[Rfam]
RNA sequence: GUAAGUCGAAGACAGCUGCUGAGCUUUUAGCUCGAGGAAACUCCGUCCACCACACAGAACUAUAGUGUCUAAAGGCACAUGCUGAGAAGUAUGACUCUGGAGCAGAAACGAAACGUCUUUUAAUGAAUGAUUAUGAUGCAUUUUGCAGAUUGACAUUAAAAGGAUCGGUGAAACGGCCAAUCUAUAGGGUGCAAGAACAAAACAGCCAAUGACAACUGUUAGAGGCAAAGUAGUUCGCAAAGAUGAAUGCUGUUAAACAGAAGAUGGGUUACUCAUGUACAUAC
Numbered sequence: 001g002u003a004a005g006u007c008g009a010a011g012a013c014a015g016c017u018g019c020u021g022a023g024c025u026u027u028u029a030g031c032u033c034g035a036g037g038a039a040a041c042u043c044c045g046u047c048c049a050c051c052a053c054a055c056a057g058a059a060c061u062a063u064a065g066u067g068u069c070u071a072a073a074g075g076c077a078c079a080u081g082c083u084g085a086g087a088a089g090u091a092u093g094a095c096u097c098u099g100g101a102g103c104a105g106a107a108a109c110g111a112a113a114c115g116u117c118u119u120u121u122a123a124u125g126a127a128u129g130a131u132u133a134u135g136a137u138g139c140a141u142u143u144u145g146c147a148g149a150u151u152g153a154c155a156u157u158a159a160a161a162g163g164a165u166c167g168g169u170g171a172a173a174c175g176g177c178c179a180a181u182c183u184a185u186a187g188g189g190u191g192c193a194a195g196a197a198c199a200a201a202a203c204a205g206c207c208a209a210u211g212a213c214a215a216c217u218g219u220u221a222g223a224g225g226c227a228a229a230g231u232a233g234u235u236c237g238c239a240a241a242g243a244u245g246a247a248u249g250c251u252g253u254u255a256a257a258c259a260g261a262a263g264a265u266g267g268g269u270u271a272c273u274c275a276u277g278u279a280c281a282u283a284c
Base pairs, nucleotide, nucleotide: 001284002283003282005280006279007277008276010273011272012253013252014251015250016249020034021033022032023031024030039270040269041268043267044266045265046264047263048191049190050189051188054219055218056217057216060187061186062185063184064183065078066077067076068075069074079092080091081090082089083088093182094181098179099178100177114167115166117162118161119160120159121158122157123156124155135146195236196235197234198233205226206225207224
This 284-nucleotide RNA sequence from Methanobrevibacter filiformis belongs to the Rfam family "Archaeal RNase P". NCBI's taxonomy places the organism under Archaea, Methanobacteriati, Methanobacteria, Methanobacteriaceae, Methanobrevibacter. From the family's description: Ribonuclease P (RNase P) is a ubiquitous endoribonuclease, found in archaea, bacteria and eukarya as well as chloroplasts and mitochondria. Its best characterised activity is the generation of mature 5'-ends of tRNAs by cleaving the 5'-leader elements of precursor-tRNAs. A search with the family's covariance model found it, with a score of 191 bits. It is annotated as a ribozyme. The family is grouped with related families in Rfam's "RNaseP clan". Pairs were carried over by alignment from the consensus structure, which is taken from published work. Rfam links the family to the GO terms tRNA processing, ribonuclease P activity and multimeric ribonuclease P complex.